[Rfam]
RNA sequence: UUGCAGUACAUAAUAAUACAAUGAACACAAUUUUAAACAAUACUUGGUGGUGGAAUACUUUACGUCAUACGUCGUGAACUAGUCCCCUAUAGUAUUUUUUUAAAUCAAAAUAUACCUAAAAGGCUUGUC
Numbered sequence: 001u002u003g004c005a006g007u008a009c010a011u012a013a014u015a016a017u018a019c020a021a022u023g024a025a026c027a028c029a030a031u032u033u034u035a036a037a038c039a040a041u042a043c044u045u046g047g048u049g050g051u052g053g054a055a056u057a058c059u060u061u062a063c064g065u066c067a068u069a070c071g072u073c074g075u076g077a078a079c080u081a082g083u084c085c086c087c088u089a090u091a092g093u094a095u096u097u098u099u100u101u102a103a104a105u106c107a108a109a110a111u112a113u114a115c116c117u118a119a120a121a122g123g124c125u126u127g128u129c
Stems, first nucleotide, its partner, number of pairs: 036099002040095005047088001049086002052083001056081002059078003062072003
Dot-bracket structure: ...................................((..(((((..(.((.(...((.((((((.....)))...))).)).).)).)..)))))..))..............................

The family of this 129-nucleotide RNA sequence from Flavobacterium kingsejongi is "Bacteroidete tryptophan peptide leader RNA". The organism belongs to Flavobacterium, within Bacteria. A search with the family's covariance model found it, with a score of 78 bits. Rfam classes the family as a cis-regulatory leader.